[Rfam]
RNA sequence: GGAAGCCGCGACCACGCCGAGUAGGAUCGAGGGUACAGCUUCC
Number, nucleotide and partner (000 for none) at each position: 001g000002g042003a041004a040005g039006c038007c000008g000009c000010g000011a034012c033013c032014a000015c029016g028017c025018c024019g000020a000021g000022u000023a000024g018025g017026a000027u000028c016029g015030a000031g000032g013033g012034u011035a000036c000037a000038g006039c005040u004041u003042c002043c000
The record is a 43-nucleotide RNA sequence from Mamastrovirus hominis, which matches "Coronavirus 3' stem-loop II-like motif (s2m)" in Rfam. NCBI's taxonomy places the organism under Viruses, Pisuviricota, Astroviridae, Mamastrovirus, Mamastrovirus 1. On this family, see Jonassen et al., J Gen Virol 1998: "A common RNA motif in the 3' end of the genomes of astroviruses, avian infectious bronchitis virus and an equine rhinovirus".